A member of the RNA family "Bacterial large signal recognition particle RNA" from Thermobacillus composti, 265 nucleotides long. The organism belongs to Thermobacillus composti, within Bacteria. About the family: The signal recognition particle (SRP) is a universally conserved ribonucleoprotein involved in the co-translational targeting of proteins to membranes. Rfam links the family to the GO terms SRP-dependent cotranslational protein targeting to membrane, signal sequence recognition and signal recognition particle, plasma membrane targeting. The base pairs follow the family's consensus structure, which is taken from published work. The family's RNA type in Rfam is non-coding RNA gene.
RNA sequence: CCGUGCUAGACGGGGAGGUAGCGGUGCCCUGUAACUCGCAAUCCGCUGCAGCGAGGUUGAAUUCCUGCCCGAGGUCUUGCGCUGCAAGGCUGGCGCCCGCAAGCCGUGUUGACGGCCGGGUCCUCCGCAAUGAGCCCCUGUGAACCUGGUCAGGUCCGGAAGGAAGCAGCCAUAAGCAGGUUUGUUCAUGUGCCGGGGGAGUGCCUGGCCCGAGCGGGGAUCGGGAAUGCCGCUUGGAACGCAAUGAUCGGAGGCAGGUGCACGG
Numbered sequence: 001c002c003g004u005g006c007u008a009g010a011c012g013g014g015g016a017g018g019u020a021g022c023g024g025u026g027c028c029c030u031g032u033a034a035c036u037c038g039c040a041a042u043c044c045g046c047u048g049c050a051g052c053g054a055g056g057u058u059g060a061a062u063u064c065c066u067g068c069c070c071g072a073g074g075u076c077u078u079g080c081g082c083u084g085c086a087a088g089g090c091u092g093g094c095g096c097c098c099g100c101a102a103g104c105c106g107u108g109u110u111g112a113c114g115g116c117c118g119g120g121u122c123c124u125c126c127g128c129a130a131u132g133a134g135c136c137c138c139u140g141u142g143a144a145c146c147u148g149g150u151c152a153g154g155u156c157c158g159g160a161a162g163g164a165a166g167c168a169g170c171c172a173u174a175a176g177c178a179g180g181u182u183u184g185u186u187c188a189u190g191u192g193c194c195g196g197g198g199g200a201g202u203g204c205c206u207g208g209c210c211c212g213a214g215c216g217g218g219g220a221u222c223g224g225g226a227a228u229g230c231c232g233c234u235u236g237g238a239a240c241g242c243a244a245u246g247a248u249c250g251g252a253g254g255c256a257g258g259u260g261c262a263c264g265g
Base pairs, nucleotide, nucleotide: 001265002264003263004262005261006260009058010057011056012030013029014028015027017025019023035055036054037053038052039051064258065257066256067255068254069253073249074248075247076246079242080241081240083238085236086235087234088233092231093230096225097224098223099222104218105216106215107214114210115209116208117207118206119205120204121203122199123198124197125196126195127194128190129189131188132187133186134185135184137180138179139178140177141176147172148171149170150169155164156163157162